RNA sequence: UUAAGGUAGGCGCCGCUCCUCCCCCCCGUUAGCGGCGGACCGCCGGAUAAGGAGGAAUCACCCACCGCAGGCUUGCGGUGCGGCAGUGUGGAGACCUGCCGUAAUGCAUCCGCGCUUCGCGCGCCGAUGUGAGGUCCGGGCAAGCGGAGGCUCCCGGAUCAGAGCCGGUAGCAUGGCA
Numbered sequence: 001u002u003a004a005g006g007u008a009g010g011c012g013c014c015g016c017u018c019c020u021c022c023c024c025c026c027c028g029u030u031a032g033c034g035g036c037g038g039a040c041c042g043c044c045g046g047a048u049a050a051g052g053a054g055g056a057a058u059c060a061c062c063c064a065c066c067g068c069a070g071g072c073u074u075g076c077g078g079u080g081c082g083g084c085a086g087u088g089u090g091g092a093g094a095c096c097u098g099c100c101g102u103a104a105u106g107c108a109u110c111c112g113c114g115c116u117u118c119g120c121g122c123g124c125c126g127a128u129g130u131g132a133g134g135u136c137c138g139g140g141c142a143a144g145c146g147g148a149g150g151c152u153c154c155c156g157g158a159u160c161a162g163a164g165c166c167g168g169u170a171g172c173a174u175g176g177c178a
Base pairs, nucleotide, nucleotide: 011037012036013035014034015033016032017031065078066077067076068075070166071165072164073163074162079103080102081101082100083099084098085097086096088095089094106130107129108128109127110126112124113123114122133160134159135158136157137156138155139154140153143152144151145150
Rfam assigns this 178-nucleotide RNA to the family "malK-I RNA". The base pairs follow the family's consensus structure, which is taken from published work. It is one of the family's seed sequences.